[Rfam]
Background:
Rfam assigns this 93-nucleotide RNA sequence from Drosophila willistoni to the family "mir-958 microRNA precursor family". The base pairs follow the family's consensus structure, which was predicted with RNAalifold.
Nucleotides: 093
Base pairs, nucleotide, nucleotide: 002092003091004090005089006088012083013082014081016080017079018078019077020076021075022074023073024072025071026070028069029068030067035062036061037060038059039058042056
Number, partner (000 for none) and nucleotide at each position: 001000c002092g003091g004090u005089g006088u007000g008000u009000c010000u011000u012083u013082g014081g015000c016080a017079a018078g019077u020076a021075g022074a023073a024072u025071a026070g027000c028069a029068g030067g031000c032000u033000u034000a035062u036061c037060a038059c039058a040000u041000g042056u043000u044000c045000c046000c047000u048000u049000u050000a051000c052000a053000a054000c055000c056042g057000g058039u059038g060037u061036g062035a063000g064000a065000u066000u067030c068029u069028u070026c071025u072024a073023u074022u075021c076020u077019a078018c079017u080016u081014u082013c083012g084000a085000a086000a087000a088006g089005c090004a091003c092002c093000c

About this RNA:
It scores 94 bits against the family's covariance model. Its family is annotated with RISC complex and miRNA-mediated post-transcriptional gene silencing in the Gene Ontology.